[Rfam]
RNA: Alphaproteobacterial ar15
Organism: Sinorhizobium sp. BG8
RNA sequence: AGUUGAUGCACAUGGCGGUCUUUCUCCUCCCAGUGCCGCCGCGUCAGCUGUUCCCCUCUGGAGGUUAUUUUACCUUCACAACUGACAAGGGCCCAAGCAUCGCUUGAGGCCCUCUUUU
Numbered sequence: 001a002g003u004u005g006a007u008g009c010a011c012a013u014g015g016c017g018g019u020c021u022u023u024c025u026c027c028u029c030c031c032a033g034u035g036c037c038g039c040c041g042c043g044u045c046a047g048c049u050g051u052u053c054c055c056c057u058c059u060g061g062a063g064g065u066u067a068u069u070u071u072a073c074c075u076u077c078a079c080a081a082c083u084g085a086c087a088a089g090g091g092c093c094c095a096a097g098c099a100u101c102g103c104u105u106g107a108g109g110c111c112c113u114c115u116u117u118u
Stems, first nucleotide, its partner, number of pairs: 001049005007043003015039004059078007088113006094106004